[Rfam]
RNA sequence: ACCUUAUACAGAUGUAGUGACGCAAGACAGUGACGCAUCUCCCUGUAAGGUGGUGUUUACAGAGAAGUAUAAGCGACAAGUUCUAUUGUGUGGCUUUUGAGUCGAAAUAGAAUGAGCUUAUAUGGAAUAGGUUAACCGUAAGACCUUGAAUUGAAAAAUUCUAAAAUUGACCUAGAAAUGAAAUUUCUCAAAUUUCCCAAUUUCUAGUUACGGUCUA
Numbered sequence: 001a002c003c004u005u006a007u008a009c010a011g012a013u014g015u016a017g018u019g020a021c022g023c024a025a026g027a028c029a030g031u032g033a034c035g036c037a038u039c040u041c042c043c044u045g046u047a048a049g050g051u052g053g054u055g056u057u058u059a060c061a062g063a064g065a066a067g068u069a070u071a072a073g074c075g076a077c078a079a080g081u082u083c084u085a086u087u088g089u090g091u092g093g094c095u096u097u098u099g100a101g102u103c104g105a106a107a108u109a110g111a112a113u114g115a116g117c118u119u120a121u122a123u124g125g126a127a128u129a130g131g132u133u134a135a136c137c138g139u140a141a142g143a144c145c146u147u148g149a150a151u152u153g154a155a156a157a158a159u160u161c162u163a164a165a166a167u168u169g170a171c172c173u174a175g176a177a178a179u180g181a182a183a184u185u186u187c188u189c190a191a192a193u194u195u196c197c198c199a200a201u202u203u204c205u206a207g208u209u210a211c212g213g214u215c216u217a
Base pairs, nucleotide, nucleotide: 001051002050003049004048005047006046007045008044010040011039012038013037014036015035017034018033020031021030022028067123068122069121070120071119072118073117074116081112082111083110084109085108086107087106092103093102095100129146130145131144132143133142135214136213137212138211139210140209141167148161149160150159151158152157172207173206174205175204176203177202178201179200180196181195182194183193
This 217-nucleotide RNA sequence belongs to the Rfam family "IS605-orfB-I RNA".